Shown here is a 75-nucleotide RNA sequence from Alligator sinensis, a member of the family "Mammalian CPEB3 ribozyme". Lineage of the source: Eukaryota > Eumetazoa > Vertebrata > Crocodylia > Alligator. A search with the family's covariance model found it, with a score of 36 bits.
RNA sequence: GGUCGUGAGUUGGAGGCCAUAGCAAAAGCGCUCACUCCGUGACUCUGUCAGAUUCCGAUGAUUGUGAAUUCUGCU
Numbered sequence: 001g002g003u004c005g006u007g008a009g010u011u012g013g014a015g016g017c018c019a020u021a022g023c024a025a026a027a028g029c030g031c032u033c034a035c036u037c038c039g040u041g042a043c044u045c046u047g048u049c050a051g052a053u054u055c056c057g058a059u060g061a062u063u064g065u066g067a068a069u070u071c072u073g074c075u
Base pairs, nucleotide, nucleotide: 013045014044015043018041021075022074023073024072026070027069028040029039030038049064050063051062054061055060